[Rfam]
Shown here is an 89-nucleotide RNA sequence from Raphidocelis subcapitata, a member of the family "Small nucleolar RNA snoR8a". Its family is annotated with nucleolus and RNA processing in the Gene Ontology. A reference for the family is Brown et al. (2001), "Multiple snoRNA gene clusters from Arabidopsis", RNA. Lineage of the source: Eukaryota > Viridiplantae > core chlorophytes > Chlorophyceae > Raphidocelis.
RNA sequence: GCGGCCGCGGUGACGCGAAUACAUUCCUCGUCCUGACCAGCGUCUCGCUUGAUGACGCAAUAUAUCACACCCAUAGAAUCUGAGCGGCC
Numbered sequence: 001g002c003g004g005c006c007g008c009g010g011u012g013a014c015g016c017g018a019a020u021a022c023a024u025u026c027c028u029c030g031u032c033c034u035g036a037c038c039a040g041c042g043u044c045u046c047g048c049u050u051g052a053u054g055a056c057g058c059a060a061u062a063u064a065u066c067a068c069a070c071c072c073a074u075a076g077a078a079u080c081u082g083a084g085c086g087g088c089c
Base pairs, nucleotide, nucleotide: 003089004088006086007085